[Rfam]
Rfam assigns this 199-nucleotide RNA from Flavonifractor sp. An100 to the family "6S / SsrS RNA". A search with the family's covariance model found it, with a score of 68 bits. Rfam classes the family as a non-coding RNA gene.
RNA sequence: AUUUUCCUGCUCGGUGCGUGAUGGGUUCUUUUAAACCCACAUCUCUUAAACGGGACGCCCCCUCACGGCGCGGCUUGCAGGCCUCCCGGCCCCCUUUGAGGUCAGCUGGAAGUUGGAAGCAGAUAAACGUCGUGGAGGCGACCCACCUGCCAUCACGUGCAGGUUUUAAACGGGCCCACACGGCCAGAGCGGGGGAGAA
Numbered sequence: 001a002u003u004u005u006c007c008u009g010c011u012c013g014g015u016g017c018g019u020g021a022u023g024g025g026u027u028c029u030u031u032u033a034a035a036c037c038c039a040c041a042u043c044u045c046u047u048a049a050a051c052g053g054g055a056c057g058c059c060c061c062c063u064c065a066c067g068g069c070g071c072g073g074c075u076u077g078c079a080g081g082c083c084u085c086c087c088g089g090c091c092c093c094c095u096u097u098g099a100g101g102u103c104a105g106c107u108g109g110a111a112g113u114u115g116g117a118a119g120c121a122g123a124u125a126a127a128c129g130u131c132g133u134g135g136a137g138g139c140g141a142c143c144c145a146c147c148u149g150c151c152a153u154c155a156c157g158u159g160c161a162g163g164u165u166u167u168a169a170a171c172g173g174g175c176c177c178a179c180a181c182g183g184c185c186a187g188a189g190c191g192g193g194g195g196a197g198a199a
Base pairs, nucleotide, nucleotide: 002197003196004195005194006193007192008191009190010189011188013185014184015183017182018181019180033166034165035164036163037162052144053143054142056140057139058138059137061135063134065133066132067131068130069129070128077120078119082116083115086112
Dot-bracket structure: .((((((((((.(((.(((.............(((((..............(((.((((.(.(.((((((......((...((..(.........................)..))..)).......)))))))).)))).))).................))))).............))))))..))))))))))..
The organism belongs to Flavonifractor, within Bacteria. E. coli 6S RNA was the first non coding RNA to be sequenced, but its function was unknown until recently. It consists of 184 nucleotides that fold into an extended hairpin structure with a large single-stranded internal bulge. For this family Rfam cites "6S RNA Mimics B-Form DNA to Regulate Escherichia coli RNA Polymerase" (Chen et al., Molecular Cell, 2017).